[Rfam]
RNA: BsrC
Organism: Thermolongibacillus altinsuensis
RNA sequence: AAAACGCAAAACAAUGAAAGCCCUACCUCUCUUCCAUCCUUGCAGUUCCGAGACUGCGCCAGUGUGAAUUCGUUUUUCGGCAUAAAA
Numbered sequence: 001a002a003a004a005c006g007c008a009a010a011a012c013a014a015u016g017a018a019a020g021c022c023c024u025a026c027c028u029c030u031c032u033u034c035c036a037u038c039c040u041u042g043c044a045g046u047u048c049c050g051a052g053a054c055u056g057c058g059c060c061a062g063u064g065u066g067a068a069u070u071c072g073u074u075u076u077u078c079g080g081c082a083u084a085a086a087a
Base pairs, nucleotide, nucleotide: 035066036065039062040061041058042057043056044055045054046053047052